[Rfam]
The family of this 280-nucleotide part of an RNA from Rhizoclosmatium globosum is "Eukaryotic large subunit ribosomal RNA".
Taxonomically the source falls in Rhizoclosmatium (Eukaryota, Opisthokonta, chytridiomyceta, Chytridiomycotina).
A reference for the family is Yusupov et al. (2001), "Crystal structure of the ribosome at 5.5 A resolution", Science.
It scores 3359 bits against the family's covariance model.
Rfam 15.1 lists 107,465 matches to the family in 2,616 species.
RNA sequence: GAGUUCUACAAAUGCGCGAGUCUUUGGGUGUCAAACCCGAGGGCGAAAUGAAAGUAAACGUAGGUGUGAUCCGCAAGGUGCAACAUCGACCGGACUGGAUUUUCUUGAAAGUUCUGAGUAAGAGCGCAUUUGCAGAGACCCGAAAGAUGGUGAACUAUACCUGAGUAGGGUGAAGUCAGAGGAAACUCUGAUGGAAGCUCGUAGCGGUUCUGACGUGCAAAUCGAUCGUCGAACUUGGGUAUAGGGGCGAAAGACUAAUCGAACCAUCUAGUAGCUGGUU
Numbered sequence: 001g002a003g004u005u006c007u008a009c010a011a012a013u014g015c016g017c018g019a020g021u022c023u024u025u026g027g028g029u030g031u032c033a034a035a036c037c038c039g040a041g042g043g044c045g046a047a048a049u050g051a052a053a054g055u056a057a058a059c060g061u062a063g064g065u066g067u068g069a070u071c072c073g074c075a076a077g078g079u080g081c082a083a084c085a086u087c088g089a090c091c092g093g094a095c096u097g098g099a100u101u102u103u104c105u106u107g108a109a110a111g112u113u114c115u116g117a118g119u120a121a122g123a124g125c126g127c128a129u130u131u132g133c134a135g136a137g138a139c140c141c142g143a144a145a146g147a148u149g150g151u152g153a154a155c156u157a158u159a160c161c162u163g164a165g166u167a168g169g170g171u172g173a174a175g176u177c178a179g180a181g182g183a184a185a186c187u188c189u190g191a192u193g194g195a196a197g198c199u200c201g202u203a204g205c206g207g208u209u210c211u212g213a214c215g216u217g218c219a220a221a222u223c224g225a226u227c228g229u230c231g232a233a234c235u236u237g238g239g240u241a242u243a244g245g246g247g248c249g250a251a252a253g254a255c256u257a258a259u260c261g262a263a264c265c266a267u268c269u270a271g272u273a274g275c276u277g278g279u280u
Stems, first nucleotide, its partner, number of pairs: 005136003009132009020044003025039005048055002063087005071078002089119002091116003094112003139278002142275001146268006155244011166232001168200004175192007204229004209225002212223002246256002